[Rfam]
RNA: SAM riboswitch aptamer (S box leader)
RNA sequence: UUCUUAUCCAGAGAGGUGGAGGGACAUGGCCCUUUGAAGCCUCGGCAGCGGGUUCGUUUAAGAAUACUGUGCCAAUUCCAUCAAGCGGAUUUGCUUGUGAGAUAAGAA
Numbered sequence: 001u002u003c004u005u006a007u008c009c010a011g012a013g014a015g016g017u018g019g020a021g022g023g024a025c026a027u028g029g030c031c032c033u034u035u036g037a038a039g040c041c042u043c044g045g046c047a048g049c050g051g052g053u054u055c056g057u058u059u060a061a062g063a064a065u066a067c068u069g070u071g072c073c074a075a076u077u078c079c080a081u082c083a084a085g086c087g088g089a090u091u092u093g094c095u096u097g098u099g100a101g102a103u104a105a106g107a108a
Stems, first nucleotide, its partner, number of pairs: 001108008013043005021032003026081004044073004049069002051065001053063002077100001082097006